FMN riboswitch aptamer (RFN element): a 137-nucleotide sequence from Staphylococcus simulans. Taxonomically the source falls in Staphylococcus (Bacteria, Bacillati, Caryophanales, Staphylococcaceae). A search with the family's covariance model found it, with a score of 117 bits. The RFN element is a highly conserved domain that is found frequently in the 5'-untranslated regions of prokaryotic mRNAs that encode for flavin mononucleotide (FMN) biosynthesis and transport proteins.
RNA sequence: AUAUUCUUUCGGGGCAGGGUGCAAUUCCCAACCGGCAGUAAAAACAUAAGCCUGCGACCUGUACUCUAUUGUAGAGUAUGGCUGAUCUAGUGUGAAUCUAGAGCCGACAGUAAAAGUCUGGAUGGGAGAAAGAAUCA
Numbered sequence: 001a002u003a004u005u006c007u008u009u010c011g012g013g014g015c016a017g018g019g020u021g022c023a024a025u026u027c028c029c030a031a032c033c034g035g036c037a038g039u040a041a042a043a044a045c046a047u048a049a050g051c052c053u054g055c056g057a058c059c060u061g062u063a064c065u066c067u068a069u070u071g072u073a074g075a076g077u078a079u080g081g082c083u084g085a086u087c088u089a090g091u092g093u094g095a096a097u098c099u100a101g102a103g104c105c106g107a108c109a110g111u112a113a114a115a116g117u118c119u120g121g122a123u124g125g126g127a128g129a130a131a132g133a134a135u136c137a
Stems, first nucleotide, its partner, number of pairs: 003135008017029003031117002033106002035055004050104002059081002086102005108120003